[Rfam]
The family of this 58-nucleotide sequence from Salmonella enterica is "Salmonella enterica sRNA STnc310". The base pairs follow the family's consensus structure, which was predicted with RNAalifold.
RNA sequence: AUUGUGACAUGUUAAACAAAAACGCCGCAGGUGUACGCUGCCGGCGUUUUUGAUGGGG
Numbered sequence: 001a002u003u004g005u006g007a008c009a010u011g012u013u014a015a016a017c018a019a020a021a022a023c024g025c026c027g028c029a030g031g032u033g034u035a036c037g038c039u040g041c042c043g044g045c046g047u048u049u050u051u052g053a054u055g056g057g058g
Stems, first nucleotide, its partner, number of pairs: 002019004023044001025043001027041004031036001